[Rfam]
RNA sequence: AAGGAGUAUGCCGAAAAUCCUAUGAAGAGUAGGCA
Numbered sequence: 001a002a003g004g005a006g007u008a009u010g011c012c013g014a015a016a017a018u019c020c021u022a023u024g025a026a027g028a029g030u031a032g033g034c035a
Base pairs, nucleotide, nucleotide: 002021003020004019005018010034011033012032
Background:
This 35-nucleotide RNA belongs to the Rfam family "DUF805b RNA". Rfam classes the family as a cis-regulatory element. It is one of the family's seed sequences.